[Rfam]
RNA sequence: CUGUCCAAGGAGCGUUGCAGUGCGGGAACUUCCCCACCAGGCUUGGACAACGCAUACCCUGCAACGACGCUCACCUGAU
Number, nucleotide and partner (000 for none) at each position: 001c000002u049003g048004u047005c046006c045007a044008a043009g000010g000011a000012g000013c000014g000015u000016u000017g000018c000019a000020g000021u036022g035023c000024g033025g032026g031027a000028a000029c000030u000031u026032c025033c024034c000035c022036a021037c000038c000039a000040g000041g000042c000043u008044u007045g006046g005047a004048c003049a002050a000051c000052g000053c000054a000055u000056a000057c000058c000059c000060u000061g000062c000063a000064a000065c000066g000067a000068c000069g000070c000071u000072c000073a000074c000075c000076u000077g000078a000079u000
Shown here is a 79-nucleotide RNA sequence from Rhodoferax lacus, a member of the family "SAH (S-adenosyl-L-homocysteine) riboswitch aptamer". Lineage of the source: Bacteria > Pseudomonadati > Pseudomonadota > Burkholderiales > Rhodoferax. It scores 59 bits against the family's covariance model. A reference for the family is Wang et al. (2008), "Riboswitches that sense S-adenosylhomocysteine and activate genes involved in coenzyme recycling", Mol Cell.